RNA sequence: GCCGCUCCCCGGACGGUCGCGGUCAGCUCAGCUUGUCUGAUUUUGAUCGAGGAAAGUCCGGACACCAUAGGGCAGCGUGCCCUGCGAAAGCGGGGGACGGCCAGUUCAAGCUGGUCGGACGGAAAGUGCAGCAGAAAACAAACCGCCUUGAUCCUUCGGGAUUGAGGUAAGGGUGAAAAGGUGGGGUAAGAGCCCACCGCUCCAAGGGUGACCGAGGAGGCACGGUAAACCCCACGCGGCGCAAGACAUAACAGGGGAAGGGUUGCCCGCCCGAUCAGGAUCCCCGGGUAUUAGUCGCACCAUCCCGCAAGGGAGGUUUUCUCUCUGUCUCCGGACAGGGUAGGAUAAGAUAAAUGACCGUCCAGCUCCAGAUUGUCUGGAGUGGACAGAAUCCGGCUUACAGGGGAGCGGCCCCC
Number, nucleotide and partner (000 for none) at each position: 001g412002c411003c410004g409005c408006u407007c406008c405009c404010c403011g401012g362013a361014c360015g359016g358017u357018c356019g000020c049021g048022g047023u046024c045025a044026g043027c000028u000029c000030a000031g000032c000033u000034u000035g000036u000037c000038u000039g000040a000041u000042u000043u026044u025045g024046a023047u022048c021049g020050a000051g000052g000053a000054a399055a398056g397057u000058c396059c395060g394061g393062a392063c241064a000065c239066c238067a000068u000069a000070g272071g271072g270073c269074a000075g237076c236077g235078u234079g233080c095081c094082c093083u092084g091085c000086g000087a000088a000089a000090g000091c084092g083093g082094g081095g080096g120097a000098c117099g116100g115101c114102c113103a112104g111105u110106u000107c000108a000109a000110g105111c104112u103113g102114g101115u100116c099117g098118g000119a000120c096121g232122g231123a000124a000125a000126g230127u229128g226129c225130a000131g000132c000133a000134g000135a000136a000137a000138a000139c000140a000141a000142a000143c172144c171145g168146c167147c166148u165149u164150g163151a162152u161153c160154c000155u000156u000157c000158g000159g000160g153161a152162u151163u150164g149165a148166g147167g146168u145169a000170a000171g144172g143173g000174u000175g000176a000177a000178a000179a000180g198181g197182u196183g195184g194185g193186g000187u000188a000189a000190g000191a000192g000193c185194c184195c183196a182197c181198c180199g221200c219201u218202c217203c216204a000205a000206g213207g212208g000209u000210g000211a000212c207213c206214g000215a000216g203217g202218a201219g200220g000221c199222a000223c000224g000225g129226u128227a000228a000229a127230c126231c122232c121233c079234a078235c077236g076237c075238g066239g065240c000241g063242c000243a000244a000245g296246a295247c294248a291249u000250a000251a000252c000253a000254g000255g285256g284257g283258a000259a281260g000261g000262g000263u277264u000265g275266c000267c273268c000269g073270c072271c071272c070273g267274a000275u265276c000277a263278g000279g000280a000281u259282c000283c257284c256285c255286g000287g000288g000289u000290a000291u248292u000293a000294g247295u246296c245297g000298c000299a000300c000301c000302a000303u345304c344305c343306c000307g341308c000309a000310a000311g000312g000313g000314a000315g000316g000317u000318u000319u000320u000321c000322u000323c000324u000325c000326u000327g000328u000329c000330u000331c000332c000333g000334g000335a000336c000337a000338g000339g000340g000341u307342a000343g305344g304345a303346u000347a000348a000349g000350a000351u000352a000353a000354a000355u000356g018357a017358c016359c015360g014361u013362c012363c000364a000365g000366c000367u000368c000369c000370a000371g000372a000373u000374u000375g000376u000377c000378u000379g000380g000381a000382g000383u000384g000385g000386a000387c000388a000389g000390a000391a000392u062393c061394c060395g059396g058397c056398u055399u054400a000401c011402a000403g010404g009405g008406g007407a006408g005409c004410g003411g002412c001413c000414c000415c000416c000
Rfam assigns this 416-nucleotide RNA sequence from Oceaniferula marina to the family "Bacterial RNase P class A".
A search with the family's covariance model found it, with a score of 225 bits.